[Rfam]
RNA sequence: CUGUAGUGCAUUGUAGUUGCAUUGCAUGAUCCUGAUGAUGAGUGCAAUGUGUCUGCAGUGCAGUACAG
Numbered sequence: 001c002u003g004u005a006g007u008g009c010a011u012u013g014u015a016g017u018u019g020c021a022u023u024g025c026a027u028g029a030u031c032c033u034g035a036u037g038a039u040g041a042g043u044g045c046a047a048u049g050u051g052u053c054u055g056c057a058g059u060g061c062a063g064u065a066c067a068g
Base pairs, nucleotide, nucleotide: 001068002067003066004065006064007062008061009060010059011058012057013056014055015054016053019050021048022047023046024045025044026043027042

mir-33 microRNA precursor family: a 68-nucleotide RNA sequence from Channa argus.
For this family Rfam cites "Direct sequencing and expression analysis of a large number of miRNAs in Aedes aegypti and a multi-species survey of novel mosquito miRNAs" (Li et al., BMC Genomics, 2009).
It scores 71 bits against the family's covariance model.
The organism belongs to Channa, within Eukaryota.
Rfam 15.1 lists 1,467 matches to the family in 815 species.
The base pairs follow the family's consensus structure, which was predicted with PFOLD.